Rfam assigns this 57-nucleotide RNA to the family "Plastid-ccsA-ndhD-1 3UTR RNA". Plastid-ccsA-ndhD-1 is a non-coding RNA (ncRNA) recognised in plastids. It was found in the three prime untranslated region (3UTR) of ccsA and ndhD genes, its 3UTR location suggests a role in transcript maturation. For this family Rfam cites "Control of plastid gene expression: 3' inverted repeats act as mRNA processing and stabilizing elements, but do not terminate transcription" (Stern and Gruissem, Cell, 1987).
RNA sequence: UAAACCUAUGAGAACUUUUUGAAUCAAAUAAUGGAGUGAUUCAAAAAGUUCUCAUAA
Numbered sequence: 001u002a003a004a005c006c007u008a009u010g011a012g013a014a015c016u017u018u019u020u021g022a023a024u025c026a027a028a029u030a031a032u033g034g035a036g037u038g039a040u041u042c043a044a045a046a047a048g049u050u051c052u053c054a055u056a057a
Stems, first nucleotide, its partner, number of pairs: 008055019